[Rfam]
Nucleotides: 087
Stems, first nucleotide, its partner, number of pairs: 012037002017032006040081004045077003048072003055066004
Number, partner (000 for none) and nucleotide at each position: 001000a002000a003000c004000a005000g006000a007000a008000a009000a010000a011000g012037g013036c014000u015000a016000a017032c018031u019030u020029g021028u022027u023000g024000a025000a026000a027022a028021g029020c030019a031018a032017g033000g034000g035000c036013g037012c038000a039000a040081a041080g042079u043078c044000a045077c046076g047075g048072g049071u050070c051000u052000a053000a054000g055066g056065g057064g058063u059000a060000g061000a062000a063058a064057u065056c066055c067000u068000a069000u070050g071049a072048u073000a074000g075047c076046c077045g078043g079042a080041u081040u082000g083000c084000c085000u086000g087000g